RNA: Small nucleolar RNA Z157/R69/R10
RNA sequence: AUUGGAGCGGUGAUGAGCAAUUUUUGUGGACUAGAGUUUCUGAUACUACCUAGUAGUAUUUGACGACCAACCCUUGGCUGUCUGAGCUCCCAA
Dot-bracket structure: .(.(((((............................(.((...((((((...))))))...)).)....................))))).).